[Rfam]
Overview
A member of the RNA family "Small nucleolar RNA U109" from Geotrypetes seraphini, 163 nucleotides long. The match comes from Rfam's covariance-model search (58 bits). NCBI's taxonomy places the organism under Eukaryota, Bilateria, Euteleostomi, Sarcopterygii, Geotrypetes. It is annotated as an H/ACA-box small nucleolar RNA. Rfam 15.1 lists 1,405 matches to the family in 622 species. The base pairs follow the family's consensus structure, which was predicted with WAR. For this family Rfam cites "A novel experimental approach for systematic identification of box H/ACA snoRNAs from eukaryotes" (Gu et al., Nucleic Acids Res, 2005).
RNA sequence: CUGCAUGAGUGUAGACCUUUUUUUUUUCUUCUUCUUUUUUUUCUUUUUAAGUCUACUUGCCUUAAAGUGGGACUUUUGAGUUGUGUGCUAGAAUAAAGAUGGAGGUAUCAGGGCCACCAGUCAGAAAGCGAAGGCUGAGUGGUAGUGUAUACCUCCUACAUUA
Numbered sequence: 001c002u003g004c005a006u007g008a009g010u011g012u013a014g015a016c017c018u019u020u021u022u023u024u025u026u027u028c029u030u031c032u033u034c035u036u037u038u039u040u041u042u043c044u045u046u047u048u049a050a051g052u053c054u055a056c057u058u059g060c061c062u063u064a065a066a067g068u069g070g071g072a073c074u075u076u077u078g079a080g081u082u083g084u085g086u087g088c089u090a091g092a093a094u095a096a097a098g099a100u101g102g103a104g105g106u107a108u109c110a111g112g113g114c115c116a117c118c119a120g121u122c123a124g125a126a127a128g129c130g131a132a133g134g135c136u137g138a139g140u141g142g143u144a145g146u147g148u149a150u151a152c153c154u155c156c157u158a159c160a161u162u163a
Stems, first nucleotide, its partner, number of pairs: 003088005016071003020067004101156004113143002117139001118137005